[Rfam]
RNA sequence: ACGACUCUCCAUUGAAUCUAUUCUUAUUAGUUUAAUAUCUGAUAUAUGGGUCAUGUGCCCACUGUGACAUUAAAUUUAUUUUUUGUGGGAGAGGGUCCAUCGCUAGUGGCUUGCCACUGGACCCUCGUGUGUCGCUUUGGCGCUGCACUCUAGUCUUGCCUUGCCUGGCGCACCCAAA
Numbered sequence: 001a002c003g004a005c006u007c008u009c010c011a012u013u014g015a016a017u018c019u020a021u022u023c024u025u026a027u028u029a030g031u032u033u034a035a036u037a038u039c040u041g042a043u044a045u046a047u048g049g050g051u052c053a054u055g056u057g058c059c060c061a062c063u064g065u066g067a068c069a070u071u072a073a074a075u076u077u078a079u080u081u082u083u084u085g086u087g088g089g090a091g092a093g094g095g096u097c098c099a100u101c102g103c104u105a106g107u108g109g110c111u112u113g114c115c116a117c118u119g120g121a122c123c124c125u126c127g128u129g130u131g132u133c134g135c136u137u138u139g140g141c142g143c144u145g146c147a148c149u150c151u152a153g154u155c156u157u158g159c160c161u162u163g164c165c166u167g168g169c170g171c172a173c174c175c176a177a178a
Stems, first nucleotide, its partner, number of pairs: 025044006047061005091126008106117004129171006136163001139160003
Rfam assigns this 178-nucleotide sequence from Dichanthelium oligosanthes to the family "U2 spliceosomal RNA".
It scores 78 bits against the family's covariance model.
Pairs were carried over by alignment from the consensus structure, which is taken from published work.
By type it is a spliceosomal small nuclear RNA.